[Rfam]
Rfam assigns this 32-nucleotide RNA from Flavobacterium columnare to the family "S16-Flavobacteria ribosomal protein leader". It is annotated as a cis-regulatory leader. The literature on the family includes a 2020 paper in BMC Microbiol by Eckert and Weinberg, "Discovery of 20 novel ribosomal leader candidates in bacteria and archaea". Taxonomically the source falls in Flavobacterium columnare (Bacteria, Bacteroidota, Flavobacteriia, Flavobacterium). The family's consensus secondary structure is taken from published work.
RNA sequence: UUAAAUAACCGAGGUCGGGAACCUCAAUUUAA
Numbered sequence: 001u002u003a004a005a006u007a008a009c010c011g012a013g014g015u016c017g018g019g020a021a022c023c024u025c026a027a028u029u030u031a032a
Stems, first nucleotide, its partner, number of pairs: 001032006011025005